The record is an 87-nucleotide RNA sequence from Caldalkalibacillus thermarum, which matches "c-di-GMP-I riboswitch aptamer" in Rfam. It scores 84 bits against the family's covariance model.

[Rfam]
RNA sequence: AACCGAUAAAGGCAAAACUGUGGAAACGCAGUGACGCAAAGCUACAGGGGCUAAGGUCCGCCAGGGCUAUGCCAGCCAGCUACCGGU
Dot-bracket structure: ...........((...((((((....))))))...))..((((...(((((....((((....))))...)))..))))))......